[Rfam]
RNA sequence: UGGUUUCCUGCUUCAAUAGUGCUUGGAUGGAACCG
Numbered sequence: 001u002g003g004u005u006u007c008c009u010g011c012u013u014c015a016a017u018a019g020u021g022c023u024u025g026g027a028u029g030g031a032a033c034c035g
Base pairs, nucleotide, nucleotide: 001035002034003033004032005031007030008029010028012027013026014025015024016023017021
This 35-nucleotide RNA sequence from Myotis myotis belongs to the Rfam family "Iron response element I".
It scores 38 bits against the family's covariance model.
By type it is a cis-regulatory element.
Gene Ontology term of the family: response to iron ion.
Lineage of the source: Eukaryota > Opisthokonta > Metazoa > Chordata > Myotis.